RNA sequence: GCCCGGGGGAAGAAAAAGAUAUAUGAUGAAACAUUUAGUAUGGGCAAGCAGGGAGCUGGAAAGAUUCGCAUGUGACCCCGGGC
Numbered sequence: 001g002c003c004c005g006g007g008g009g010a011a012g013a014a015a016a017a018g019a020u021a022u023a024u025g026a027u028g029a030a031a032c033a034u035u036u037a038g039u040a041u042g043g044g045c046a047a048g049c050a051g052g053g054a055g056c057u058g059g060a061a062a063g064a065u066u067c068g069c070a071u072g073u074g075a076c077c078c079c080g081g082g083c
Stems, first nucleotide, its partner, number of pairs: 001083008
About this RNA
HIV gag stem loop 3 (GSL3): an 83-nucleotide sequence from Lentivirus simimdef. Lineage of the source: Viruses > Riboviria > Pararnavirae > Artverviricota > Lentivirus simimdef. Rfam classes the family as a cis-regulatory element.